[Rfam]
RNA sequence: GGGACAUGAUGAAGAACCAUUGGUCCGUGUUUCUGAUCAUCUGAUGAAAUACAAUGAAGCACUCAACUUCUGAUCCC
Numbered sequence: 001g002g003g004a005c006a007u008g009a010u011g012a013a014g015a016a017c018c019a020u021u022g023g024u025c026c027g028u029g030u031u032u033c034u035g036a037u038c039a040u041c042u043g044a045u046g047a048a049a050u051a052c053a054a055u056g057a058a059g060c061a062c063u064c065a066a067c068u069u070c071u072g073a074u075c076c077c
Stems, first nucleotide, its partner, number of pairs: 001077004

Record summary:
The family of this 77-nucleotide RNA from Oryza brachyantha is "Small nucleolar RNA SNORD18". A reference for the family is Giorgi et al. (2001), "Release of U18 snoRNA from its host intron requires interaction of Nop1p with the Rnt1p endonuclease", EMBO J. The source organism's lineage runs through Eukaryota, Viridiplantae, Tracheophyta, Oryzeae and Oryza. The family's consensus secondary structure was predicted with PFOLD.